[Rfam]
RNA sequence: GAGAUCCUGAGGUGUGCGAGAUCCUGUCAUAUUGAACCUGCUACGAUUGACAAGGGAGCUGGAAGUUUAAUCACGUAGUACGGGCCGCAAGCUAAUUCCGUCACGGUUUGGCCGUACGGCAGCGGAAGUACGAAAUGGUUAACAGGCGCCCACCUGGUUGAGUGCCAGGUGUCAAUAGUACAGGAAACGGCACCUUGGGGCAAAG
Numbered sequence: 001g002a003g004a005u006c007c008u009g010a011g012g013u014g015u016g017c018g019a020g021a022u023c024c025u026g027u028c029a030u031a032u033u034g035a036a037c038c039u040g041c042u043a044c045g046a047u048u049g050a051c052a053a054g055g056g057a058g059c060u061g062g063a064a065g066u067u068u069a070a071u072c073a074c075g076u077a078g079u080a081c082g083g084g085c086c087g088c089a090a091g092c093u094a095a096u097u098c099c100g101u102c103a104c105g106g107u108u109u110g111g112c113c114g115u116a117c118g119g120c121a122g123c124g125g126a127a128g129u130a131c132g133a134a135a136u137g138g139u140u141a142a143c144a145g146g147c148g149c150c151c152a153c154c155u156g157g158u159u160g161a162g163u164g165c166c167a168g169g170u171g172u173c174a175a176u177a178g179u180a181c182a183g184g185a186a187a188c189g190g191c192a193c194c195u196u197g198g199g200g201c202a203a204a205g
Stems, first nucleotide, its partner, number of pairs: 005200011017189002032175003036170004054151003058147003062143001068141006080129002085125004
Background:
A member of the RNA family "6S / SsrS RNA" from Thermoclostridium caenicola, 205 nucleotides long. Pairs were carried over by alignment from the consensus structure, which is taken from published work. The organism belongs to Thermoclostridium, within Bacteria.